Source information
The record is a 67-nucleotide RNA sequence from Marmota monax, which matches "mir-290 microRNA precursor family" in Rfam. On this family, see Houbaviy et al., Dev Cell 2003: "Embryonic stem cell-specific MicroRNAs".
RNA sequence: GUAGUUCUCAAACUGUGGGGGCACUUUUUGUUCCAUAAAAAAAUUGCCGCCAGAGUUUGAGUGUUAC
Numbered sequence: 001g002u003a004g005u006u007c008u009c010a011a012a013c014u015g016u017g018g019g020g021g022c023a024c025u026u027u028u029u030g031u032u033c034c035a036u037a038a039a040a041a042a043a044u045u046g047c048c049g050c051c052a053g054a055g056u057u058u059g060a061g062u063g064u065u066a067c
Stems, first nucleotide, its partner, number of pairs: 004064002007061006016052003020048004025043001026041003
Its family is annotated with miRNA-mediated post-transcriptional gene silencing and RISC complex in the Gene Ontology.